Rfam assigns this 140-nucleotide sequence from Nonomuraea jiangxiensis to the family "c-di-AMP riboswitch aptamer (ydaO/yuaA leader)".
It scores 84 bits against the family's covariance model.
RNA sequence: GAGUUCGUCCAGCCUAAUCCACGCACCGCUGCGUGGAGCCGGGGACCCAACCUCCCCCUGGGGCGAAUCGGCGCAAGCCGUAGGGCCACUUCCAGGCCCGAGCCCGUCAGCUAACCCGGUAGGCCACGUGGAAGGACAGA
Numbered sequence: 001g002a003g004u005u006c007g008u009c010c011a012g013c014c015u016a017a018u019c020c021a022c023g024c025a026c027c028g029c030u031g032c033g034u035g036g037a038g039c040c041g042g043g044g045a046c047c048c049a050a051c052c053u054c055c056c057c058c059u060g061g062g063g064c065g066a067a068u069c070g071g072c073g074c075a076a077g078c079c080g081u082a083g084g085g086c087c088a089c090u091u092c093c094a095g096g097c098c099c100g101a102g103c104c105c106g107u108c109a110g111c112u113a114a115c116c117c118g119g120u121a122g123g124c125c126a127c128g129u130g131g132a133a134g135g136a137c138a139g140a
Base pairs, nucleotide, nucleotide: 012124013123014122018037019036020035021034022033023032024031038120039119040118041117042116043115048060049059061105062104063103069080070079071078072077083099084098085097086096
Gene Ontology terms of the family: regulation of gene expression and cyclic-di-AMP binding. The organism belongs to Nonomuraea, within Bacteria.